The record is a 54-nucleotide RNA sequence from Caldibacillus thermoamylovorans, which matches "Streptococcus sRNA SpF59 (ldcC RNA)" in Rfam. It scores 65 bits against the family's covariance model. Rfam classes the family as a small RNA. On this family, see Mann et al., PLoS Pathog 2012: "Control of virulence by small RNAs in Streptococcus pneumoniae". The family's consensus secondary structure was predicted with mfold.
Nucleotides: 054
Stems, first nucleotide, its partner, number of pairs: 001046005006023006
Number, partner (000 for none) and nucleotide at each position: 001046u002045g003044a004043c005042c006023a007022c008021u009020u010019c011018c012000u013000g014000a015000u016000a017000g018011g019010g020009g021008a022007g023006u024000u025000a026000a027000g028000g029000c030000c031000a032000c033000g034000g035000a036000c037000a038000g039000c040000c041000g042005g043004g044003u045002c046001a047000a048000a049000u050000g051000c052000c053000g054000a